[Rfam]
RNA sequence: ACCCUCCUGUUCCCUUUCCCAUCGGAUCUGAACACUGGUCUUGGUGGUCGUAAAGGGAGGGAUAGUAACACUGAAGCUGGCCUCACAGGGCUCCUUGGUUCUGCCAUGUAGCACAUGGGCUAGUUUCAAACAAAC
Number, nucleotide and partner (000 for none) at each position: 001a000002c000003c060004c059005u058006c057007c056008u000009g000010u000011u000012c000013c000014c000015u000016u000017u000018c000019c047020c046021a045022u044023c043024g000025g040026a039027u038028c037029u000030g000031a000032a000033c000034a000035c000036u000037g028038g027039u026040c025041u000042u000043g023044g022045u021046g020047g019048u000049c000050g000051u000052a000053a000054a000055g000056g007057g006058a005059g004060g003061g000062a000063u000064a000065g000066u000067a000068a000069c000070a000071c000072u000073g000074a000075a000076g000077c123078u122079g121080g120081c119082c118083u117084c000085a000086c000087a000088g000089g000090g000091c000092u113093c000094c111095u000096u000097g000098g000099u000100u000101c000102u000103g000104c000105c000106a000107u000108g000109u000110a000111g094112c000113a092114c000115a000116u000117g083118g082119g081120c080121u079122a078123g077124u000125u000126u000127c000128a000129a000130a000131c000132a000133a000134a000135c000